[Rfam]
RNA sequence: UCCCGCAGCCCUUCUUGGGCGUUUCCUCCCUAGACUUCGGGCCGUCCCUCGGGACGGCCUUUUUUCUUUUCUUUC
Numbered sequence: 001u002c003c004c005g006c007a008g009c010c011c012u013u014c015u016u017g018g019g020c021g022u023u024u025c026c027u028c029c030c031u032a033g034a035c036u037u038c039g040g041g042c043c044g045u046c047c048c049u050c051g052g053g054a055c056g057g058c059c060u061u062u063u064u065u066c067u068u069u070u071c072u073u074u075c
Base pairs, nucleotide, nucleotide: 008020009019010018011017039060040059041058042057043056044055045054046053047052